[Rfam]
RNA sequence: AAGUUCUCUAUCUUGUUGUCAUCCAAGUAGCUGACACUGGGAUCCAUAUUUCUUUUUUUUUGGGUCCCAGUGUCAGCUACUUGGAUGACAACAUUUGGUACGGACGAUU
Numbered sequence: 001a002a003g004u005u006c007u008c009u010a011u012c013u014u015g016u017u018g019u020c021a022u023c024c025a026a027g028u029a030g031c032u033g034a035c036a037c038u039g040g041g042a043u044c045c046a047u048a049u050u051u052c053u054u055u056u057u058u059u060u061u062g063g064g065u066c067c068c069a070g071u072g073u074c075a076g077c078u079a080c081u082u083g084g085a086u087g088a089c090a091a092c093a094u095u096u097g098g099u100a101c102g103g104a105c106g107a108u109u
Stems, first nucleotide, its partner, number of pairs: 011104002017090030
Shown here is a 109-nucleotide RNA sequence from Pararge aegeria, a member of the family "Wolbachia sRNA 46". The source organism's lineage runs through Eukaryota, Ditrysia, Obtectomera, Parargina and Pararge aegeria. The literature on the family includes a 2014 paper in Proc Natl Acad Sci U S A by Mayoral et al., "Wolbachia small noncoding RNAs and their role in cross-kingdom communications". Pairs were carried over by alignment from the consensus structure. A search with the family's covariance model found it, with a score of 67 bits.